[Rfam]
About this RNA
Shown here is an 81-nucleotide sequence from Rhinopomastus cyanomelas, a member of the family "Small nucleolar RNA SNORD87". The literature on the family includes a 2001 paper in EMBO J by Huttenhofer et al., "RNomics: an experimental approach that identifies 201 candidates for novel, small, non-messenger RNAs in mouse". Rfam classes the family as a C/D-box small nucleolar RNA. Lineage of the source: Eukaryota > Opisthokonta > Deuterostomia > Dipnotetrapodomorpha > Rhinopomastus.
RNA sequence: GCUGGCAUAAUGAUGAUAACCUUUUGCCGUUUACCCAUCUGAUUGGUUCCUGAUGUGUACCUUUGAAUCUGAACUGCCAGU
Numbered sequence: 001g002c003u004g005g006c007a008u009a010a011u012g013a014u015g016a017u018a019a020c021c022u023u024u025u026g027c028c029g030u031u032u033a034c035c036c037a038u039c040u041g042a043u044u045g046g047u048u049c050c051u052g053a054u055g056u057g058u059a060c061c062u063u064u065g066a067a068u069c070u071g072a073a074c075u076g077c078c079a080g081u
Stems, first nucleotide, its partner, number of pairs: 001081007